[Rfam]
The family of this 77-nucleotide RNA sequence from Sitta europaea is "mir-458 microRNA precursor family". The source organism's lineage runs through Eukaryota, Tetrapoda, Archosauria, Passeriformes and Sitta. The family's consensus secondary structure was predicted with RNAalifold. Rfam links the family to the GO terms RISC complex and miRNA-mediated post-transcriptional gene silencing. On this family, see Glazov et al., Genome Res 2008: "A microRNA catalog of the developing chicken embryo identified by a deep sequencing approach". It scores 85 bits against the family's covariance model.
RNA sequence: GUGCCGAUGGCAGCGCCAUUUCCAGAGCUAUCACAGGCUCGUGGUCAUAGCUCUUGGAAUGGUUCUGCCAUAAGCAC
Numbered sequence: 001g002u003g004c005c006g007a008u009g010g011c012a013g014c015g016c017c018a019u020u021u022c023c024a025g026a027g028c029u030a031u032c033a034c035a036g037g038c039u040c041g042u043g044g045u046c047a048u049a050g051c052u053c054u055u056g057g058a059a060u061g062g063u064u065c066u067g068c069c070a071u072a073a074g075c076a077c
Stems, first nucleotide, its partner, number of pairs: 002076003007071003011067003015063007024054008